[Rfam]
RNA sequence: CCAUCAUCACCAUCAUCCUGACUAGUCUUUCAGGCCGAUGAGUGCUGGGAGACGGGUAACGAAUCUUCCAGCGGCGCGGAACGCAGUAAUCCAAGAGAGCCCCCGGAAGAUAUCUUCCGGGGGCUUUUUUAU
Numbered sequence: 001c002c003a004u005c006a007u008c009a010c011c012a013u014c015a016u017c018c019u020g021a022c023u024a025g026u027c028u029u030u031c032a033g034g035c036c037g038a039u040g041a042g043u044g045c046u047g048g049g050a051g052a053c054g055g056g057u058a059a060c061g062a063a064u065c066u067u068c069c070a071g072c073g074g075c076g077c078g079g080a081a082c083g084c085a086g087u088a089a090u091c092c093a094a095g096a097g098a099g100c101c102c103c104c105g106g107a108a109g110a111u112a113u114c115u116u117c118c119g120g121g122g123g124c125u126u127u128u129u130u131a132u
Stems, first nucleotide, its partner, number of pairs: 008044003011040004017034005045071008094129016
About this RNA
The record is a 132-nucleotide sequence from Enterobacillus tribolii, which matches "Histidine operon leader" in Rfam. Pairs were carried over by alignment from the consensus structure, which is taken from published work. The organism belongs to Enterobacillus, within Bacteria.